[Rfam]
RNA sequence: UGUCUGGUCGGAAACCAGGCCGAAAGAAGGAG
Number, nucleotide and partner (000 for none) at each position: 001u000002g020003u019004c018005u017006g016007g015008u014009c000010g000011g000012a000013a000014a008015c007016c006017a005018g004019g003020c002021c000022g000023a000024a000025a000026g000027a000028a000029g000030g000031a000032g000
Rfam assigns this 32-nucleotide RNA from Olsenella sp. oral taxon 809 to the family "L31-Coriobacteria ribosomal protein leader".